[Rfam]
RNA: Lysine riboswitch aptamer
RNA sequence: AAUGUGAAUAGAGGCGCGAGAGCUAAGAGUAAAAUGUGGGAUGUGUUACGAACACAGUUGAACACGUUUGAAAGGGGUGAUCGCCGAAGUGGGGGCUGUGUCGUAGCGAACCUGCUGGUGUGUUGUAAAAGAUAUAACACAUUGUCAAGGAGUCUUGGAGGGCUAUUCUCAUU
Numbered sequence: 001a002a003u004g005u006g007a008a009u010a011g012a013g014g015c016g017c018g019a020g021a022g023c024u025a026a027g028a029g030u031a032a033a034a035u036g037u038g039g040g041a042u043g044u045g046u047u048a049c050g051a052a053c054a055c056a057g058u059u060g061a062a063c064a065c066g067u068u069u070g071a072a073a074g075g076g077g078u079g080a081u082c083g084c085c086g087a088a089g090u091g092g093g094g095g096c097u098g099u100g101u102c103g104u105a106g107c108g109a110a111c112c113u114g115c116u117g118g119u120g121u122g123u124u125g126u127a128a129a130a131g132a133u134a135u136a137a138c139a140c141a142u143u144g145u146c147a148a149g150g151a152g153u154c155u156u157g158g159a160g161g162g163c164u165a166u167u168c169u170c171a172u173u
Stems, first nucleotide, its partner, number of pairs: 006168006016084004022078003032069007088116006095107003117143011145158005